RNA sequence: AAAUUUCCAACUCGUGUGUUCCACACCCUCAGAUGGCAAAACUUCUCAGUUGAACCUCUCACGGGGGGGAGUUUUAGUUGGUAUGCGCCAGCAGGCUUCUCCUGCUGGUGAAUCCAACACUACCCGCAUUUCCUUCGCGGGUGUCUUUUGCGAAGAUUUCUCCUCCUCGU
Numbered sequence: 001a002a003a004u005u006u007c008c009a010a011c012u013c014g015u016g017u018g019u020u021c022c023a024c025a026c027c028c029u030c031a032g033a034u035g036g037c038a039a040a041a042c043u044u045c046u047c048a049g050u051u052g053a054a055c056c057u058c059u060c061a062c063g064g065g066g067g068g069g070a071g072u073u074u075u076a077g078u079u080g081g082u083a084u085g086c087g088c089c090a091g092c093a094g095g096c097u098u099c100u101c102c103u104g105c106u107g108g109u110g111a112a113u114c115c116a117a118c119a120c121u122a123c124c125c126g127c128a129u130u131u132c133c134u135u136c137g138c139g140g141g142u143g144u145c146u147u148u149u150g151c152g153a154a155g156a157u158u159u160c161u162c163c164u165c166c167u168c169g170u
Base pairs, nucleotide, nucleotide: 047169064168065167066166067165069162070161071160077118078117079116080115081114086110087109088108089107090106091105092104093103094102095101120143122142123141124140125139126138